[Rfam]
The record is a 141-nucleotide RNA sequence from Sapajus apella, which matches "U4 spliceosomal RNA" in Rfam. Its Rfam clan is "U4 clan".
RNA sequence: AGCCUUAUGCAGCGGCAGUAUCGUAGCCAAUGAGGUUUAUCCGAGGCGCAAUUAUUGCUAAUUGAAAACUUUUCUCAAUACCCCGCCUUGACGAUUUGCAAUACAGUCAGCACUGGCAAUUUUUGACAGUCUCUAUGGAGA
Numbered sequence: 001a002g003c004c005u006u007a008u009g010c011a012g013c014g015g016c017a018g019u020a021u022c023g024u025a026g027c028c029a030a031u032g033a034g035g036u037u038u039a040u041c042c043g044a045g046g047c048g049c050a051a052u053u054a055u056u057g058c059u060a061a062u063u064g065a066a067a068a069c070u071u072u073u074c075u076c077a078a079u080a081c082c083c084c085g086c087c088u089u090g091a092c093g094a095u096u097u098g099c100a101a102u103a104c105a106g107u108c109a110g111c112a113c114u115g116g117c118a119a120u121u122u123u124u125g126a127c128a129g130u131c132u133c134u135a136u137g138g139a140g141a
Stems, first nucleotide, its partner, number of pairs: 020052002023049002026047003034042002085117003089112002093108004130141004
Dot-bracket structure: ...................((.((.(((.....((.....))..))))).))................................(((.((..((((........))))..))..)))............((((....))))
A reference for the family is Plaschka et al. (2017), "Structure of a pre-catalytic spliceosome", Nature.
The family's consensus secondary structure is taken from published work.
Rfam classes the family as a spliceosomal small nuclear RNA.